[Rfam]
RNA: Glycine riboswitch aptamer
RNA sequence: GGACAGAACUCUGGAGAGACUCCGCUGAUGUGGGGCACCGAAGGGGCAAGACGUGUCAGUACACGUUAAAACUCUCAGGUAAAAGGACAGGGAUUGCAGA
Numbered sequence: 001g002g003a004c005a006g007a008a009c010u011c012u013g014g015a016g017a018g019a020c021u022c023c024g025c026u027g028a029u030g031u032g033g034g035g036c037a038c039c040g041a042a043g044g045g046g047c048a049a050g051a052c053g054u055g056u057c058a059g060u061a062c063a064c065g066u067u068a069a070a071a072c073u074c075u076c077a078g079g080u081a082a083a084a085g086g087a088c089a090g091g092g093a094u095u096g097c098a099g100a
Base pairs, nucleotide, nucleotide: 006095007094009092010091011090012089013088020035021034022033023032037080038079039078040076041075044074045073046072050067051066052065053064054063